[Rfam]
RNA sequence: UCGGUGUGAGGUAGUAGGUUGUAUAGUUGAGAACAACAUCAUUUCCACCGGAGAAACUGUACAACUUGCUAACUUUCUCUGG
Numbered sequence: 001u002c003g004g005u006g007u008g009a010g011g012u013a014g015u016a017g018g019u020u021g022u023a024u025a026g027u028u029g030a031g032a033a034c035a036a037c038a039u040c041a042u043u044u045c046c047a048c049c050g051g052a053g054a055a056a057c058u059g060u061a062c063a064a065c066u067u068g069c070u071a072a073c074u075u076u077c078u079c080u081g082g
Stems, first nucleotide, its partner, number of pairs: 001082004006077001008075003012071016030044003046053001